[Rfam]
RNA sequence: UUGGGAGUUCGCGGCCAUAACACAAGCACUCACAGUGCGGCCUGUCAAAUUCCAGUGAAUCUGUGUAUUUUGCU
Numbered sequence: 001u002u003g004g005g006a007g008u009u010c011g012c013g014g015c016c017a018u019a020a021c022a023c024a025a026g027c028a029c030u031c032a033c034a035g036u037g038c039g040g041c042c043u044g045u046c047a048a049a050u051u052c053c054a055g056u057g058a059a060u061c062u063g064u065g066u067a068u069u070u071u072g073c074u
Stems, first nucleotide, its partner, number of pairs: 013042004019074001021072002024069002026038003046063002049060004
Dot-bracket structure: ............((((..[.[[.[[(((.......)))))))...((.((((....)))).))....]].]].]
RNA: Mammalian CPEB3 ribozyme
Organism: Crocodylus porosus